[Rfam]
RNA sequence: AUACUUACCUGGCAGCAGAGAUACCAUGAUCACAGGGCGAGGCUUAUCCAUUGCACUCUGGAUGUGCUAGCCCCUGAGAUUUCCCCAAAUGUGGGAAACCCGACUGCAUAAUUUGUGGCAGCGGGGGACUGCAUUCGUGCUCUCCCCUG
Number, nucleotide and partner (000 for none) at each position: 001a000002u000003a000004c000005u000006u000007a000008c000009c000010u000011g000012g107013c106014a105015g104016c000017a000018g031019a030020g000021a000022u000023a000024c000025c000026a000027u000028g000029a000030u019031c018032a000033c000034a075035g074036g073037g072038c000039g071040a000041g068042g067043c066044u000045u064046a063047u062048c061049c060050a000051u000052u000053g000054c000055a000056c000057u000058c000059u000060g049061g048062a047063u046064g045065u000066g043067c042068u041069a000070g000071c039072c037073c036074c035075u034076g000077a000078g101079a000080u098081u097082u096083c000084c094085c093086c000087a000088a000089a000090u000091g000092u000093g085094g084095g000096a082097a081098a080099c000100c000101c078102g000103a000104c015105u014106g013107c012108a000109u000110a000111a000112u000113u000114u000115g000116u000117g000118g000119c000120a000121g000122c000123g148124g147125g146126g145127g144128a143129c000130u000131g140132c139133a138134u000135u000136c000137g000138u133139g132140c131141u000142c000143u128144c127145c126146c125147c124148u123149g000
RNA: U1 spliceosomal RNA
Organism: Myotis lucifugus